[Rfam]
Shown here is an 82-nucleotide RNA from Pleuronectes platessa, a member of the family "mir-729 microRNA precursor family".
Lineage of the source: Eukaryota > Osteoglossocephalai > Neoteleostei > Percomorphaceae > Pleuronectes.
RNA sequence: UGUCCUCACAGCUGGGGCUGUAUCAUAACCACGCUGUGAUUGGAAAAAGCAUGGGUAUGAUACGACCUCAGUUUGGAGGAAG
Numbered sequence: 001u002g003u004c005c006u007c008a009c010a011g012c013u014g015g016g017g018c019u020g021u022a023u024c025a026u027a028a029c030c031a032c033g034c035u036g037u038g039a040u041u042g043g044a045a046a047a048a049g050c051a052u053g054g055g056u057a058u059g060a061u062a063c064g065a066c067c068u069c070a071g072u073u074u075g076g077a078g079g080a081a082g
Stems, first nucleotide, its partner, number of pairs: 001082001003080005009075001010073008019064009029054003033050002035046001037044001